Record summary
The record is a 107-nucleotide sequence from Pogona vitticeps, which matches "U1 spliceosomal RNA" in Rfam. The organism belongs to Pogona, within Eukaryota. The family's RNA type in Rfam is spliceosomal small nuclear RNA. A search with the family's covariance model found it, with a score of 87 bits.

[Rfam]
RNA sequence: AGGGGAGAUACCAUGAUCAUAAAAGUGGUUUUCCCAGGGUAAGGCUCAUCUAUUGCACUUUGGAUGUGCUGAUCCCUGUGAUUUCCCCAAAUGUGGGAAAAUCAACU
Numbered sequence: 001a002g003g004g005g006a007g008a009u010a011c012c013a014u015g016a017u018c019a020u021a022a023a024a025g026u027g028g029u030u031u032u033c034c035c036a037g038g039g040u041a042a043g044g045c046u047c048a049u050c051u052a053u054u055g056c057a058c059u060u061u062g063g064a065u066g067u068g069c070u071g072a073u074c075c076c077u078g079u080g081a082u083u084u085c086c087c088c089a090a091a092u093g094u095g096g097g098a099a100a101a102u103c104a105a106c107u
Base pairs, nucleotide, nucleotide: 001107002106003035004034005033006032007031008030010029011028012027013026014025036077037076038075039074041073043070044069045068047066048065049064050063051062079104080103081102082100083099084098086096087095